[Rfam]
RNA: Small nucleolar RNA U49
RNA sequence: UCCUAAUGAGAAGGAACAACCUCACGAUAGGAAGUGUCAUAUGAUACUUAACAGCAGCUAUUUU
Numbered sequence: 001u002c003c004u005a006a007u008g009a010g011a012a013g014g015a016a017c018a019a020c021c022u023c024a025c026g027a028u029a030g031g032a033a034g035u036g037u038c039a040u041a042u043g044a045u046a047c048u049u050a051a052c053a054g055c056a057g058c059u060a061u062u063u064u
Base pairs, nucleotide, nucleotide: 013058032049033048034047035046036045